[Rfam]
The record is a 277-nucleotide RNA sequence from Aquarana catesbeiana, which matches "Small Cajal body specific RNA 6" in Rfam. From the family's description: U88 is small Cajal body specific RNA (scaRNA). scaRNAs are a novel class of small nuclear RNAs which localise to the Cajal bodies. U88 is found associated with both fibrillarin and Gar1p and co-localises with coilin in Cajal bodies. The family has 17 seed sequences and 1,309 matches in Rfam 15.1. Rfam links the family to the GO terms nucleolus and RNA processing. The match comes from Rfam's covariance-model search (74 bits). The literature on the family includes a 2002 paper in EMBO J by Darzacq et al., "Cajal body-specific small nuclear RNAs: a novel class of 2'-O-methylation and pseudouridylation guide RNAs". Pairs were carried over by alignment from the consensus structure, which is taken from published work.

RNA sequence: GGUCAGUGAUGAUUUGUAAAAGGUGUGAUGGCACUCUGAUUCGCUCACAGCCCAUUCAUCUCCCAGCAGACUCUGUUUUUGCCUCAUAUCACUCUAGUUGUGUAGUAUAUGGCACUGGAGACUGCUGACAUAGUUGGAUACUCGUUAUGCAGUGUUACCUGAAGUAUAAGGUAAUGCAGCCAAAGCAGUAAUCCCACAUACAUUUUUAAGGAGACUUGGGAGUGCAGGUGGAAUCUUUUGCAGUGCAUGAUCAAUCAUAAGUUUUCAAUCUGAGACC
Numbered sequence: 001g002g003u004c005a006g007u008g009a010u011g012a013u014u015u016g017u018a019a020a021a022g023g024u025g026u027g028a029u030g031g032c033a034c035u036c037u038g039a040u041u042c043g044c045u046c047a048c049a050g051c052c053c054a055u056u057c058a059u060c061u062c063c064c065a066g067c068a069g070a071c072u073c074u075g076u077u078u079u080u081g082c083c084u085c086a087u088a089u090c091a092c093u094c095u096a097g098u099u100g101u102g103u104a105g106u107a108u109a110u111g112g113c114a115c116u117g118g119a120g121a122c123u124g125c126u127g128a129c130a131u132a133g134u135u136g137g138a139u140a141c142u143c144g145u146u147a148u149g150c151a152g153u154g155u156u157a158c159c160u161g162a163a164g165u166a167u168a169a170g171g172u173a174a175u176g177c178a179g180c181c182a183a184a185g186c187a188g189u190a191a192u193c194c195c196a197c198a199u200a201c202a203u204u205u206u207u208a209a210g211g212a213g214a215c216u217u218g219g220g221a222g223u224g225c226a227g228g229u230g231g232a233a234u235c236u237u238u239u240g241c242a243g244u245g246c247a248u249g250a251u252c253a254a255u256c257a258u259a260a261g262u263u264u265u266c267a268a269u270c271u272g273a274g275a276c277c
Stems, first nucleotide, its partner, number of pairs: 001277004037257005046224003060213004064127006084112002090105001092102001137193003140189003152177009